[Rfam]
RNA sequence: UCGCUUUAAUAAGCACUUGGGCAGCAGGAGGUAUUACGGACACGAACCAAACUCCUGCGGCACUAGUACUUAGUAAAGCAA
Dot-bracket structure: (.(((((..((((.(((.(....(((((((.....................)))))))....).))).))))..))))).)